[Rfam]
RNA sequence: UACGACAAUGGCAAAACUGUCGAAAGACAGUGACGCAAAGCUAAAGGGCCUUCCUCUUAGUCAGAGAUGGUAGCCAGUUACCGAAA
Numbered sequence: 001u002a003c004g005a006c007a008a009u010g011g012c013a014a015a016a017c018u019g020u021c022g023a024a025a026g027a028c029a030g031u032g033a034c035g036c037a038a039a040g041c042u043a044a045a046g047g048g049c050c051u052u053c054c055u056c057u058u059a060g061u062c063a064g065a066g067a068u069g070g071u072a073g074c075c076a077g078u079u080a081c082c083g084a085a086a
Stems, first nucleotide, its partner, number of pairs: 001086001003083002011036002016031006034073001039079004046075002048071003
Rfam assigns this 86-nucleotide RNA from Fontibacillus panacisegetis to the family "c-di-GMP-I-GGC riboswitch aptamer". Its family is annotated with cyclic-di-GMP binding in the Gene Ontology. NCBI's taxonomy places the organism under Bacteria, Bacillati, Bacillota, Paenibacillaceae, Fontibacillus. A search with the family's covariance model found it, with a score of 68 bits.